[Rfam]
Description:
mir-204 microRNA precursor family: an 88-nucleotide RNA sequence from Macaca nemestrina. The literature on the family includes a 2008 paper in Genome Res by Murchison et al., "Conservation of small RNA pathways in platypus". Rfam's curators put it in the seed alignment. Rfam links the family to the GO terms RISC complex and miRNA-mediated post-transcriptional gene silencing. The base pairs follow the family's consensus structure, which was predicted with RNAalifold.
RNA sequence: AUGUGACUUGUGGGCUUCCCUUUGUCAUCCUUCGCCUAGGGCUCUGAGCAGGGCAGGGACAGCAAAGGGGUGCUCAGUUGUCACUUCC
Numbered sequence: 001a002u003g004u005g006a007c008u009u010g011u012g013g014g015c016u017u018c019c020c021u022u023u024g025u026c027a028u029c030c031u032u033c034g035c036c037u038a039g040g041g042c043u044c045u046g047a048g049c050a051g052g053g054c055a056g057g058g059a060c061a062g063c064a065a066a067g068g069g070g071u072g073c074u075c076a077g078u079u080g081u082c083a084c085u086u087c088c
Base pairs, nucleotide, nucleotide: 017070018069019068020067021066022065024063025062028059029058030057031056032055034054035053036052037051